hya RNA: a 74-nucleotide RNA from Gordonia rhizosphera. Pairs were carried over by alignment from the consensus structure, which is taken from published work. It is one of the family's seed sequences.
RNA sequence: AGCGUCACACAAGUGUGCCGACGGUCGACUCCGGUGACGCAAGGGGCCAGGUGCCGGGUCCCGGAGAGUGGCAC
Numbered sequence: 001a002g003c004g005u006c007a008c009a010c011a012a013g014u015g016u017g018c019c020g021a022c023g024g025u026c027g028a029c030u031c032c033g034g035u036g037a038c039g040c041a042a043g044g045g046g047c048c049a050g051g052u053g054c055c056g057g058g059u060c061c062c063g064g065a066g067a068g069u070g071g072c073a074c
Stems, first nucleotide, its partner, number of pairs: 003039006043062006